RNA sequence: AAUCGCAAUGGCAAGAGCGCAGCCGAGAACCUUCAGGCCGCCUAACGAAUUGCGCUUCAGGUCUUUGACCACGGAUGUACUGGCACUGGCCUUUUGAGGCGCUCACGAGAAGGUCGGGAUUUCCCGGCCUUUUUCGUU
Numbered sequence: 001a002a003u004c005g006c007a008a009u010g011g012c013a014a015g016a017g018c019g020c021a022g023c024c025g026a027g028a029a030c031c032u033u034c035a036g037g038c039c040g041c042c043u044a045a046c047g048a049a050u051u052g053c054g055c056u057u058c059a060g061g062u063c064u065u066u067g068a069c070c071a072c073g074g075a076u077g078u079a080c081u082g083g084c085a086c087u088g089g090c091c092u093u094u095u096g097a098g099g100c101g102c103u104c105a106c107g108a109g110a111a112g113g114u115c116g117g118g119a120u121u122u123c124c125c126g127g128c129c130u131u132u133u134u135c136g137u138u
Base pairs, nucleotide, nucleotide: 003048004047005046007043010042017039019038020037052102053101054100055099056098057097060091061090062089063088066085067084069083070082071081105137106136107135108134109132110131111130112129113128114127115126116125117124
Dot-bracket structure: ..(((.(..(......(.((................)))..))..)))...((((((..((((..((.(((.........)))))..)))).....))))))..(((((((((((((......))))))))).)))).
Record summary: This 138-nucleotide RNA sequence from Neoaquamicrobium microcysteis belongs to the Rfam family "Alphaproteobacterial sRNA ar35". NCBI's taxonomy places the organism under Bacteria, Pseudomonadati, Alphaproteobacteria, Hyphomicrobiales, Neoaquamicrobium. Rfam classes the family as a small RNA.